[Rfam]
RNA sequence: AAUUUUAAGUUAGCAGCCUGACUUUAGAGGCUGACGGCUGGUGAUUUUUUGAUCACCAGCCU
Numbered sequence: 001a002a003u004u005u006u007a008a009g010u011u012a013g014c015a016g017c018c019u020g021a022c023u024u025u026a027g028a029g030g031c032u033g034a035c036g037g038c039u040g041g042u043g044a045u046u047u048u049u050u051g052a053u054c055a056c057c058a059g060c061c062u
Base pairs, nucleotide, nucleotide: 014033015032016031017030018029036061037060038059039058040057041056042055043054044053045052
RNA: Pseudomonas sRNA P26